RNA sequence: AGCUAUGCAGUGAGCACAAAUAGAACUAUUCUUUUGCCUUUUAUUUAAGAAUAUCGUGUGCUCGCUUUAAUUCGUGGCAUAAGCUAAUAUUUGGAGGGUUCAUCGAAAUAAUUAAUCU
Numbered sequence: 001a002g003c004u005a006u007g008c009a010g011u012g013a014g015c016a017c018a019a020a021u022a023g024a025a026c027u028a029u030u031c032u033u034u035u036g037c038c039u040u041u042u043a044u045u046u047a048a049g050a051a052u053a054u055c056g057u058g059u060g061c062u063c064g065c066u067u068u069a070a071u072u073c074g075u076g077g078c079a080u081a082a083g084c085u086a087a088u089a090u091u092u093g094g095a096g097g098g099u100u101c102a103u104c105g106a107a108a109u110a111a112u113u114a115a116u117c118u
Base pairs, nucleotide, nucleotide: 003077004076005075006074009066010065011064012063013062014061015060016059017058018057027053028052029051030050031049032048033047095118097117098116099115100114102112

This 118-nucleotide RNA sequence from Camellia sinensis belongs to the Rfam family "U5 spliceosomal RNA". The organism belongs to Camellia, within Eukaryota. Rfam 15.1 lists 28,527 matches to the family in 2,489 species. From the family's description: U5 RNA is a component of both types of known spliceosome. Pairs were carried over by alignment from the consensus structure, which is taken from published work. By type it is a spliceosomal small nuclear RNA.